[Rfam]
RNA sequence: CUUCAAGAGACCCGGUCGCCAAGCUCCGACUUGACCGGGCACCAACCCCAUGUUCACGGGUGGUUCGGAUGAGGAAGCGGCUCGCAACCGCCGCCGCGGCGGCACCCGGUGCGAGCAAGAGCACAGC
Dot-bracket structure: ((((....(.((((((.....((......))..)))))))(((..(((.........))).))).........))))..(((((((.(...................).)))))))...........
Shown here is a 127-nucleotide RNA sequence from Kocuria flava, a member of the family "SAM (S-adenosyl methionine) riboswitch aptamer".
It scores 63 bits against the family's covariance model.
Rfam's curators write: SAM-IV is a mRNA element that regulates gene expression via direct sensing of S-adenosylmethionine (SAM or AdoMet).
The source organism's lineage runs through Bacteria, Bacillati, Actinomycetes, Micrococcales and Kocuria.
Its family is annotated with regulation of gene expression and S-adenosylmethionine metabolic process in the Gene Ontology.